[Rfam]
This 356-nucleotide RNA from Legionella geestiana belongs to the Rfam family "Bacterial RNase P class A". Rfam classes the family as a ribozyme. Ribonuclease P (RNase P) is a ubiquitous endoribonuclease, found in archaea, bacteria and eukarya as well as chloroplasts and mitochondria.
RNA sequence: GAAGUCGGCCAGACAAUCGCUCUCUGCCUGUCAGAGGGAGGAAAGUCCGGGCUCCACAGGGCGGGGUGCCAGGUAACGCCUGGGGGGCGUGAGCCUACGGAAAGUGCCACAGAAAAUAUACCGCCUGCUUGCAGGUAAGGGUGAAAUGGUGCGGUAAGAGCGCACCGCGCGACUGGUAACAGUCGUGGCAGGGAAAACCCCACCCGGAGCAAGACCAAAUAGGAACCCACGUGGUGGAAACACCACAACGCGCGGCCCGCGCGGGGUUCGGGUAGGUCGCUUGAGGCAUGUGGUGACGCAUGUCCCAGAUGAAUGAUUGUCCUCGACAGAACCCGGCUUAUCGGCCGACUUUUAUU
Numbered sequence: 001g002a003a004g005u006c007g008g009c010c011a012g013a014c015a016a017u018c019g020c021u022c023u024c025u026g027c028c029u030g031u032c033a034g035a036g037g038g039a040g041g042a043a044a045g046u047c048c049g050g051g052c053u054c055c056a057c058a059g060g061g062c063g064g065g066g067u068g069c070c071a072g073g074u075a076a077c078g079c080c081u082g083g084g085g086g087g088c089g090u091g092a093g094c095c096u097a098c099g100g101a102a103a104g105u106g107c108c109a110c111a112g113a114a115a116a117u118a119u120a121c122c123g124c125c126u127g128c129u130u131g132c133a134g135g136u137a138a139g140g141g142u143g144a145a146a147u148g149g150u151g152c153g154g155u156a157a158g159a160g161c162g163c164a165c166c167g168c169g170c171g172a173c174u175g176g177u178a179a180c181a182g183u184c185g186u187g188g189c190a191g192g193g194a195a196a197a198c199c200c201c202a203c204c205c206g207g208a209g210c211a212a213g214a215c216c217a218a219a220u221a222g223g224a225a226c227c228c229a230c231g232u233g234g235u236g237g238a239a240a241c242a243c244c245a246c247a248a249c250g251c252g253c254g255g256c257c258c259g260c261g262c263g264g265g266g267u268u269c270g271g272g273u274a275g276g277u278c279g280c281u282u283g284a285g286g287c288a289u290g291u292g293g294u295g296a297c298g299c300a301u302g303u304c305c306c307a308g309a310u311g312a313a314u315g316a317u318u319g320u321c322c323u324c325g326a327c328a329g330a331a332c333c334c335g336g337c338u339u340a341u342c343g344g345c346c347g348a349c350u351u352u353u354a355u356u
Base pairs, nucleotide, nucleotide: 001352002351003350004349005348006347007346008345009344010343011341012321013320014319015318016317017316018315020038021037022036023035024034025033026032043339044338045337047336048335049334050333051332052209053208054207055206059258060257061256062255064205065204066203067202068201069083070082071081072080073079084098085096086095087094088093099200100199104198105197107193108192121140122139123136124135125134126133127132148166149165150164151163152162153161167189168187169186170185171184172183173182174181175180213278214277215276216275223269224268225267226266227265228264249263250262251261252260253259285304286303287302288301289300290299291298292297

The source organism's lineage runs through Bacteria, Pseudomonadati, Gammaproteobacteria, Legionellales and Legionella.